[Rfam]
RNA: Lysine riboswitch aptamer
Organism: Psychrosphaera ytuae
RNA sequence: CAACACAGAAGAGGUGCGAUGUUCAGGUAGCAAGUUGGAGAAGUCUCAACUUCUAAGAAAACUUGUGAGGGGUUCAUCGCCGAGGGAUACGUUUGUUGAGAUAGACGUAUUUCGGCUGUCUGAAUUGAGUUUCAGCAGUUGUCACCAUGUUAUCUGGUGGAGCGCUUCUGGUUAG
Numbered sequence: 001c002a003a004c005a006c007a008g009a010a011g012a013g014g015u016g017c018g019a020u021g022u023u024c025a026g027g028u029a030g031c032a033a034g035u036u037g038g039a040g041a042a043g044u045c046u047c048a049a050c051u052u053c054u055a056a057g058a059a060a061a062c063u064u065g066u067g068a069g070g071g072g073u074u075c076a077u078c079g080c081c082g083a084g085g086g087a088u089a090c091g092u093u094u095g096u097u098g099a100g101a102u103a104g105a106c107g108u109a110u111u112u113c114g115g116c117u118g119u120c121u122g123a124a125u126u127g128a129g130u131u132u133c134a135g136c137a138g139u140u141g142u143c144a145c146c147a148u149g150u151u152a153u154c155u156g157g158u159g160g161a162g163c164g165c166u167u168c169u170g171g172u173u174a175g
Stems, first nucleotide, its partner, number of pairs: 006170006016080006024072001030066007084113012114140004120135005142160006